[Rfam]
Nucleotides: 160
Stems, first nucleotide, its partner, number of pairs: 129157002131153004137149001139147003
Number, partner (000 for none) and nucleotide at each position: 001000c002000a003000u004000g005000a006000a007000c008000u009000u010000a011000u012000u013000a014000u015000c016000c017000u018000a019000g020000g021000u022000c023000g024000g025000a026000a027000c028000a029000a030000g031000u032000u033000g034000a035000u036000a037000a038000g039000a040000u041000c042000c043000c044000u045000u046000u047000u048000u049000u050000u051000a052000c053000a054000g055000c056000c057000c058000a059000g060000g061000u062000a063000u064000c065000a066000u067000a068000u069000a070000c071000a072000c073000c074000c075000c076000a077000a078000a079000a080000u081000a082000a083000a084000g085000a086000g087000c088000c089000u090000u091000g092000a093000a094000u095000a096000c097000u098000a099000g100000a101000a102000g103000a104000a105000a106000a107000g108000c109000a110000c111000c112000u113000a114000u115000a116000c117000c118000u119000a120000a121000c122000a123000a124000g125000a126000u127000u128000a129157a130156g131153u132152g133151a134150a135000u136000a137149c138000c139147c140146a141145a142000a143000u144000c145141u146140u147139g148000u149137g150134u151133u152132c153131a154000g155000g156130u157129u158000c159000u160000a